bZIP non canonical Hac1/Xbp1 intron: a 68-nucleotide RNA from Oidiodendron maius. The source organism's lineage runs through Eukaryota, Fungi, sordariomyceta, Myxotrichaceae and Oidiodendron maius. The match comes from Rfam's covariance-model search (55 bits). About the family: bZIP intron RNA is a non-canonical intron that was first reported in HAC1 gene in yeast and XBP1 gene in Metazoa. By type it is a small RNA.

RNA sequence: AGCUCCUCCGACUUGACACAACAUCCUGCCGCGAUGUUGUGCGACCUGCAGUGUCAGUCGCAGGAGCA
Number, nucleotide and partner (000 for none) at each position: 001a000002g067003c066004u065005c064006c063007u062008c000009c060010g059011a058012c057013u056014u000015g000016a000017c000018a000019c000020a038021a037022c036023a035024u034025c033026c000027u000028g000029c000030c000031g000032c000033g025034a024035u023036g022037u021038u020039g000040u000041g000042c000043g055044a054045c053046c000047u000048g000049c000050a000051g000052u000053g045054u044055c043056a013057g012058u011059c010060g009061c000062a007063g006064g005065a004066g003067c002068a000